[Rfam]
RNA sequence: GUUGGGUAUAGUGGUGUAUACCUGUAAGCUAAACUUCUGAGCAACUGAAUGUAGGACGGUAUGAGUUAUAAGAUUGUGAUUAAGGACUUUCUUAUGUAGAGAGUCGGUCUUAUUCAAGUAUCGAGUUAACAUUCGUUGAGGGAUGUAGGUCCUUUGACAAGGUUAUUAACGAAGUGGGCAACGCGUGAGGCUGGUAACAGAGCAGCGAAAACCACUCGCUUGAUACGGUGAUUGAGAUAGCUGGCUUGAGUAAGAACCUUCUUCUGCUUAUAAUAAUAGUUGCCGAACGAAAUUCUU
Numbered sequence: 001g002u003u004g005g006g007u008a009u010a011g012u013g014g015u016g017u018a019u020a021c022c023u024g025u026a027a028g029c030u031a032a033a034c035u036u037c038u039g040a041g042c043a044a045c046u047g048a049a050u051g052u053a054g055g056a057c058g059g060u061a062u063g064a065g066u067u068a069u070a071a072g073a074u075u076g077u078g079a080u081u082a083a084g085g086a087c088u089u090u091c092u093u094a095u096g097u098a099g100a101g102a103g104u105c106g107g108u109c110u111u112a113u114u115c116a117a118g119u120a121u122c123g124a125g126u127u128a129a130c131a132u133u134c135g136u137u138g139a140g141g142g143a144u145g146u147a148g149g150u151c152c153u154u155u156g157a158c159a160a161g162g163u164u165a166u167u168a169a170c171g172a173a174g175u176g177g178g179c180a181a182c183g184c185g186u187g188a189g190g191c192u193g194g195u196a197a198c199a200g201a202g203c204a205g206c207g208a209a210a211a212c213c214a215c216u217c218g219c220u221u222g223a224u225a226c227g228g229u230g231a232u233u234g235a236g237a238u239a240g241c242u243g244g245c246u247u248g249a250g251u252a253a254g255a256a257c258c259u260u261c262u263u264c265u266g267c268u269u270a271u272a273a274u275a276a277u278a279g280u281u282g283c284c285g286a287a288c289g290a291a292a293u294u295c296u297u
Stems, first nucleotide, its partner, number of pairs: 001045003004023007028042003047295004052290001054288001058283001061280002065274007076267003083260001085259001088256002091254005097248001101247008109236002112233001114231003118226009127165004132160002135158010173216005184207003191200003
This 297-nucleotide RNA sequence from Neocallimastix californiae belongs to the Rfam family "Metazoan signal recognition particle RNA".
Rfam classes the family as a non-coding RNA gene.
It scores 150 bits against the family's covariance model.
The family's consensus secondary structure is taken from published work.